[Rfam]
RNA sequence: GAAGUAUCCGAUUUUACAACUUGUAUAUGGUCAAAAUAAGGUUGACUGUCUCUACCCGGCACCGUAAAUGCUGGACUAUAAGUGAAAAAGAGCUGAUA
Numbered sequence: 001g002a003a004g005u006a007u008c009c010g011a012u013u014u015u016a017c018a019a020c021u022u023g024u025a026u027a028u029g030g031u032c033a034a035a036a037u038a039a040g041g042u043u044g045a046c047u048g049u050c051u052c053u054a055c056c057c058g059g060c061a062c063c064g065u066a067a068a069u070g071c072u073g074g075a076c077u078a079u080a081a082g083u084g085a086a087a088a089a090g091a092g093c094u095g096a097u098a
Base pairs, nucleotide, nucleotide: 019083020082021081022080023079024078025077029047030046031045032044033043034042056074057073058072059071060070061069